[Rfam]
RNA sequence: UGGAUCAAUGAUGAGUGGUUCUGGGGUAUAUGAAUCAAGAAUUUUGAUUAAACCCUAAACUCUGAGGUCCAU
Numbered sequence: 001u002g003g004a005u006c007a008a009u010g011a012u013g014a015g016u017g018g019u020u021c022u023g024g025g026g027u028a029u030a031u032g033a034a035u036c037a038a039g040a041a042u043u044u045u046g047a048u049u050a051a052a053c054c055c056u057a058a059a060c061u062c063u064g065a066g067g068u069c070c071a072u
Base pairs, nucleotide, nucleotide: 002070003069004068005067006066
Annotation: This 72-nucleotide sequence from Lynx canadensis belongs to the Rfam family "Small nucleolar RNA SNORD113/SNORD114 family". On this family, see Cavaille et al., Hum Mol Genet 2002: "Identification of tandemly-repeated C/D snoRNA genes at the imprinted human 14q32 domain reminiscent of those at the Prader-Willi/Angelman syndrome region". By type it is a C/D-box small nucleolar RNA. A search with the family's covariance model found it, with a score of 55 bits. The family is grouped with related families in Rfam's "SNORD74 clan". NCBI's taxonomy places the organism under Eukaryota, Opisthokonta, Craniata, Sarcopterygii, Lynx.